[Rfam]
RNA sequence: GUUCGUCUUCAGGGGCAGGGUGUAAUUCCCGACCGGUGGUGAUAGUCCACGAACCAUAUCUUUUGAUAUGGCUGAAUUGGUGUAAUUCCAAUACCGACAGUAAAGUCUGGAUAAAGAAGAUAGGG
Numbered sequence: 001g002u003u004c005g006u007c008u009u010c011a012g013g014g015g016c017a018g019g020g021u022g023u024a025a026u027u028c029c030c031g032a033c034c035g036g037u038g039g040u041g042a043u044a045g046u047c048c049a050c051g052a053a054c055c056a057u058a059u060c061u062u063u064u065g066a067u068a069u070g071g072c073u074g075a076a077u078u079g080g081u082g083u084a085a086u087u088c089c090a091a092u093a094c095c096g097a098c099a100g101u102a103a104a105g106u107c108u109g110g111a112u113a114a115a116g117a118a119g120a121u122a123g124g125g
Stems, first nucleotide, its partner, number of pairs: 003123001005121006018030003032106002034096002036050004045094002054071002076092005098109003

Source information: The family of this 125-nucleotide RNA sequence from Enterococcus canis is "FMN riboswitch aptamer (RFN element)".